[Rfam]
Nucleotides: 085
Stems, first nucleotide, its partner, number of pairs: 001084021023062007033054001035052004040047002
Number, partner (000 for none) and nucleotide at each position: 001084c002083u003082u004081a005080a006079g007078g008077a009076a010075g011074c012073g013072c014071u015070u016069u017068g018067u019066c020065c021064a022000c023062g024061u025060g026059g027058a028057c029056a030000a031000a032000a033054a034000a035052c036051g037050c038049u039000u040047c041046c042000u043000u044000g045000a046041g047040g048000g049038a050037g051036c052035g053000c054033u055000g056029u057028g058027u059026c060025c061024a062023c063000g064021u065020g066019g067018a068017c069016a070015a071014a072013g073012u074011g075010c076009u077008u078007c079006c080005u081004u082003g083002a084001g085000g
MIR7486 microRNA precursor family: an 85-nucleotide RNA from Gossypium harknessii. The organism belongs to Gossypium, within Eukaryota. The family has 9 seed sequences and 10,132 matches in Rfam 15.1. A search with the family's covariance model found it, with a score of 77 bits. The family's consensus secondary structure was predicted with RNAalifold.